[Rfam]
RNA sequence: GGAUCCUUAGCUCAGUGGAUAGAGCAAUCGCCUUCUAAGCGAUCGGUCAUUGGUUCGAGUCCAAUAGGGUCCG
Dot-bracket structure: (((((((..((((........)))).(((((.......))))).....(((((.......)))))))))))).
tRNA: a 73-nucleotide RNA sequence from Leptolyngbyaceae cyanobacterium LF-bin-369.